[Rfam]
RNA sequence: GGUACCACCUCGGGGUGCCGCGAGUUUUCUCGCGGCUGAGAUGCGCAAGUGAACCCGUUGAACCUGAACCGGUUAGGACCGGCGGAGGGAAGGUCAGGAUCAUCCUA
Numbered sequence: 001g002g003u004a005c006c007a008c009c010u011c012g013g014g015g016u017g018c019c020g021c022g023a024g025u026u027u028u029c030u031c032g033c034g035g036c037u038g039a040g041a042u043g044c045g046c047a048a049g050u051g052a053a054c055c056c057g058u059u060g061a062a063c064c065u066g067a068a069c070c071g072g073u074u075a076g077g078a079c080c081g082g083c084g085g086a087g088g089g090a091a092g093g094u095c096a097g098g099a100u101c102a103u104c105c106u107a
Stems, first nucleotide, its partner, number of pairs: 007094004011057004016051001017036007043050002063088003069082004

The family of this 107-nucleotide RNA sequence from Maritimibacter sp. HL-12 is "TPP riboswitch aptamer (THI element)". From the family's description: Vitamin B(1) in its active form thiamin pyrophosphate (TPP) is an essential coenzyme that is synthesised by coupling of pyrimidine and thiazole moieties in bacteria. NCBI's taxonomy places the organism under Bacteria, Alphaproteobacteria, Rhodobacterales, Roseobacteraceae, Maritimibacter. The match comes from Rfam's covariance-model search (66 bits).